[Rfam]
RNA: Small nucleolar RNA snoR31/Z110/Z27
RNA sequence: GUUAUCAAGUGAUGAAAUGUUAAAGUUAUAAUCUCAGGACACCUUCCUACACAGUGUAAGCCAAUGCUGUGGAUGAGAAAAACAUUUCUAUUCUGAUGAUGAU
Numbered sequence: 001g002u003u004a005u006c007a008a009g010u011g012a013u014g015a016a017a018u019g020u021u022a023a024a025g026u027u028a029u030a031a032u033c034u035c036a037g038g039a040c041a042c043c044u045u046c047c048u049a050c051a052c053a054g055u056g057u058a059a060g061c062c063a064a065u066g067c068u069g070u071g072g073a074u075g076a077g078a079a080a081a082a083c084a085u086u087u088c089u090a091u092u093c094u095g096a097u098g099a100u101g102a103u
Base pairs, nucleotide, nucleotide: 001103002102003101004100005099006098007097047056